[Rfam]
The record is a 127-nucleotide RNA sequence from Tupaia belangeri, which matches "Small nucleolar RNA SNORA63" in Rfam. Rfam links the family to the GO terms RNA processing and nucleolus. Rfam describes the family as follows. E3 belongs to the H/ACA class of snoRNAs and is involved in the processing of eukaryotic pre-rRNA and has regions of complementarity to 18S rRNA. E3 is encoded in introns in the gene for protein synthesis initiation factor 4AII. The literature on the family includes a 1997 paper in Proc Natl Acad Sci U S A by Mishra and Eliceiri, "Three small nucleolar RNAs that are involved in ribosomal RNA precursor processing".
RNA sequence: AUGCAGGUACUGUUACAAUAUAACUGAAGUGUUUUAUUGUCGUUCCCCCUGCUUAAAACAUCUGAUAUGUGACUAUCUCUGUCUAGCUCCAUUCAAUAGUAAGACAGAGACGCUUGGUCUCAAACAU
Numbered sequence: 001a002u003g004c005a006g007g008u009a010c011u012g013u014u015a016c017a018a019u020a021u022a023a024c025u026g027a028a029g030u031g032u033u034u035u036a037u038u039g040u041c042g043u044u045c046c047c048c049c050u051g052c053u054u055a056a057a058a059c060a061u062c063u064g065a066u067a068u069g070u071g072a073c074u075a076u077c078u079c080u081g082u083c084u085a086g087c088u089c090c091a092u093u094c095a096a097u098a099g100u101a102a103g104a105c106a107g108a109g110a111c112g113c114u115u116g117g118u119c120u121c122a123a124a125c126a127u
Stems, first nucleotide, its partner, number of pairs: 003052005015040006022033003078108004083103002085100001